[Rfam]
RNA: c-di-AMP riboswitch aptamer (ydaO/yuaA leader)
RNA sequence: CCCCCACGUCCGCCGGGAACCGGGGAACCACCUGUUCCCGGGGUGAAUCCGCCGCGCGCGGUAGGGCCUGCUCCUGGUCCGAACCCGUCAGCUAACCCGGUAGGCGGCGCCGAGGAGAGCC
Numbered sequence: 001c002c003c004c005c006a007c008g009u010c011c012g013c014c015g016g017g018a019a020c021c022g023g024g025g026a027a028c029c030a031c032c033u034g035u036u037c038c039c040g041g042g043g044u045g046a047a048u049c050c051g052c053c054g055c056g057c058g059c060g061g062u063a064g065g066g067c068c069u070g071c072u073c074c075u076g077g078u079c080c081g082a083a084c085c086c087g088u089c090a091g092c093u094a095a096c097c098c099g100g101u102a103g104g105c106g107g108c109g110c111c112g113a114g115g116a117g118a119g120c121c
Base pairs, nucleotide, nucleotide: 001017002016019101020100021099022098023097024096029040041086042085043084049061050060051059052058064080065079066078067077